The family of this 164-nucleotide RNA from Dankookia rubra is "caulobacter sRNA CC2171". The family's consensus secondary structure was predicted with RNAalifold. A search with the family's covariance model found it, with a score of 82 bits. The source organism's lineage runs through Bacteria, Pseudomonadati, Pseudomonadota, Acetobacterales and Dankookia.
[Rfam]
Nucleotides: 164
Stems, first nucleotide, its partner, number of pairs: 016023002031133007044058001046056001048054002061081001083116003086111001090109001093105004137164012
Number, partner (000 for none) and nucleotide at each position: 001000c002000a003000a004000c005000a006000a007000c008000c009000g010000a011000a012000a013000g014000g015000a016023g017022g018000u019000g020000a021000u022017c023016c024000a025000g026000u027000g028000u029000c030000u031133c032132a033131u034130u035129g036128u037127u038000c039000g040000c041000a042000g043000g044058u045000g046056g047000a048054u049053g050000c051000c052000g053049c054048a055000g056046c057000c058044g059000c060000g061081g062000c063000c064000u065000g066000g067000a068000u069000c070000a071000u072000c073000g074000u075000c076000u077000c078000c079000g080000c081061c082000a083116c084115u085114g086111c087000g088000g089000g090109g091000a092000u093105g094104g095103c096102u097000u098000c099000c100000u101000g102096a103095g104094c105093c106000a107000c108000g109090c110000g111086g112000g113000g114085c115084g116083g117000u118000a119000a120000c121000g122000c123000c124000c125000g126000a127037a128036a129035c130034a131033a132032u133031g134000g135000a136000a137164g138163g139162g140161c141160c142159u143158c144157g145156g146155c147154g148153g149000g150000a151000u152000a153148c154147c155146g156145c157144c158143g159142g160141g161140g162139c163138c164137c